TPP riboswitch aptamer (THI element): a 113-nucleotide RNA sequence from Tepidibacillus sp. HK-1. Its family is annotated with thiamine pyrophosphate binding in the Gene Ontology. A search with the family's covariance model found it, with a score of 60 bits.

[Rfam]
RNA sequence: UAGGGAAAAAUGGGGAGCUAGAUGAGUCUGGCUGAGAGGGUAUUCCGAUCAUAAUACCGACCCACAACCUGAUCUGGGUAAUGCCAGCGGAGGGAGAUAUUUGUUAUUCUUAC
Numbered sequence: 001u002a003g004g005g006a007a008a009a010a011u012g013g014g015g016a017g018c019u020a021g022a023u024g025a026g027u028c029u030g031g032c033u034g035a036g037a038g039g040g041u042a043u044u045c046c047g048a049u050c051a052u053a054a055u056a057c058c059g060a061c062c063c064a065c066a067a068c069c070u071g072a073u074c075u076g077g078g079u080a081a082u083g084c085c086a087g088c089g090g091a092g093g094g095a096g097a098u099a100u101u102u103g104u105u106a107u108u109c110u111u112a113c
Base pairs, nucleotide, nucleotide: 006102007101008100010098011064012063013062014061017032018031019030020029021028039058040057041056042055043054068093069092070091074087075086076085077084
The base pairs follow the family's consensus structure, which is taken from published work. Rfam 15.1 lists 16,130 matches to the family in 8,693 species. NCBI's taxonomy places the organism under Bacteria, Bacillati, Bacillota, Caryophanales, Tepidibacillus.